[Rfam]
RNA sequence: UUGCAGGGUGCUUAGGGUUCCGUUGUUGUUUUCGACAAGUCAGGUCCGAGAAGCGCCACCUUGCUGGCAAACUCCAGCGAGGCACACGGCGGGGCAAAAUCCCGGGAGGU
Number, nucleotide and partner (000 for none) at each position: 001u000002u000003g000004c000005a000006g000007g057008g056009u055010g054011c053012u052013u000014a000015g047016g046017g000018u000019u000020c044021c043022g041023u038024u037025g036026u035027u034028g033029u000030u000031u000032u000033c028034g027035a026036c025037a024038a023039g000040u000041c022042a000043g021044g020045u000046c016047c015048g000049a000050g000051a000052a012053g011054c010055g009056c008057c007058a000059c082060c081061u080062u079063g078064c077065u076066g075067g074068c000069a000070a000071a000072c000073u000074c067075c066076a065077g064078c063079g062080a061081g060082g059083c000084a000085c105086a000087c108088g000089g000090c000091g103092g102093g101094g000095c000096a000097a000098a000099a000100u000101c093102c092103c091104g000105g085106g000107a000108g087109g000110u000

Shown here is a 110-nucleotide RNA sequence from Tritonibacter aquimaris, a member of the family "Guanidine-I riboswitch aptamer".
From the family's description: This family represents a conserved RNA structure found upstream of the ykkC and yxkD genes in Bacillus subtilis and related genes in other bacteria. The function of this family is unclear although it has been suggested that it may function to switch on efflux pumps and detoxification systems in response to harmful environmental molecules.
The match comes from Rfam's covariance-model search (86 bits).
On this family, see Nelson et al., Mol Cell 2017: "Metabolism of Free Guanidine in Bacteria Is Regulated by a Widespread Riboswitch Class".
The organism belongs to Tritonibacter, within Bacteria.